[Rfam]
RNA sequence: CACUCCCUGGUGGAUGCGCCAGUCGGUUAUGUCCCUGAGCCGAUACGCACAACCACGGGGGUUGCACGCUGAGGCAGGUGUGCAUGUCCGCCUGACGGAAAGCCUUAAUGCCUCCUGCAAUCUCCACCUUGAACUUUCGGGUUCAAGGGCUACACCGAUAGCGGUCUUAUCGGGGAGCCU
Numbered sequence: 001c002a003c004u005c006c007c008u009g010g011u012g013g014a015u016g017c018g019c020c021a022g023u024c025g026g027u028u029a030u031g032u033c034c035c036u037g038a039g040c041c042g043a044u045a046c047g048c049a050c051a052a053c054c055a056c057g058g059g060g061g062u063u064g065c066a067c068g069c070u071g072a073g074g075c076a077g078g079u080g081u082g083c084a085u086g087u088c089c090g091c092c093u094g095a096c097g098g099a100a101a102g103c104c105u106u107a108a109u110g111c112c113u114c115c116u117g118c119a120a121u122c123u124c125c126a127c128c129u130u131g132a133a134c135u136u137u138c139g140g141g142u143u144c145a146a147g148g149g150c151u152a153c154a155c156c157g158a159u160a161g162c163g164g165u166c167u168u169a170u171c172g173g174g175g176a177g178c179c180u
Stems, first nucleotide, its partner, number of pairs: 003177009012167004017163003031150004036145006057125003061121006068115001071114006082103002087099004
Dot-bracket structure: ..(((((((((((((.(((...........((((.((((((...............(((.((((((.(..((((((.....((...((((.....))))..)).....))))))))))))).)))..............)))))).))))..........))))))).)))))))))...

A member of the RNA family "6S / SsrS RNA" from Pseudomonas cremoricolorata, 180 nucleotides long. Rfam describes the family as follows. E. coli 6S RNA was the first non coding RNA to be sequenced, but its function was unknown until recently. It consists of 184 nucleotides that fold into an extended hairpin structure with a large single-stranded internal bulge. The 6S RNA specifically associates with RNA polymerase holoenzyme containing the sigma70 specificity factor. This interaction represses expression from a sigma70-dependent promoter during stationary phase. 6S RNA homologs have recently been identified in most bacterial genomes. Many Gram-positive species have two copies of 6S RNA. In Bacillus subtilis, both copies appear to interact with RNA polymerase holoenzyme containing the housekeeping sigma factor and be expressed during different stages of growth. In many proteobacteria, 6S RNA may be processed from a transcript encoding homologs of the E. coli YgfA protein which is a putative 5-formyltetrahydrofolate cycloligase activity. Pairs were carried over by alignment from the consensus structure, which is taken from published work. NCBI's taxonomy places the organism under Bacteria, Pseudomonadati, Pseudomonadota, Pseudomonadales, Pseudomonas. For this family Rfam cites "6S RNA is a widespread regulator of eubacterial RNA polymerase that resembles an open promoter" (Barrick et al., RNA, 2005).